[Rfam]
RNA sequence: UUGCAUACCGGCAAUGAUGUCUGCCCUGAACCGCUGCCCGCGCAGCUGAUGACGUCUGUUUAAUG
Numbered sequence: 001u002u003g004c005a006u007a008c009c010g011g012c013a014a015u016g017a018u019g020u021c022u023g024c025c026c027u028g029a030a031c032c033g034c035u036g037c038c039c040g041c042g043c044a045g046c047u048g049a050u051g052a053c054g055u056c057u058g059u060u061u062a063a064u065g
Base pairs, nucleotide, nucleotide: 010025011024012023013022016056017055018054019053020052021051033046034045035044036043